[Rfam]
RNA sequence: CCUCUGUAAAUGGGUUUAGAGUCUGAAAAACUCAGACAGUGUGUGUUGUCAUCAGCUUCUUCUCCCGCAUAACCCACGAGAUUGGAGUUAAAUAACAGCACUACAUCC
Numbered sequence: 001c002c003u004c005u006g007u008a009a010a011u012g013g014g015u016u017u018a019g020a021g022u023c024u025g026a027a028a029a030a031c032u033c034a035g036a037c038a039g040u041g042u043g044u045g046u047u048g049u050c051a052u053c054a055g056c057u058u059c060u061u062c063u064c065c066c067g068c069a070u071a072a073c074c075c076a077c078g079a080g081a082u083u084g085g086a087g088u089u090a091a092a093u094a095a096c097a098g099c100a101c102u103a104c105a106u107c108c
Base pairs, nucleotide, nucleotide: 043101044100045099046098047097048096054089055088056087057086058085059084061081062080063079064078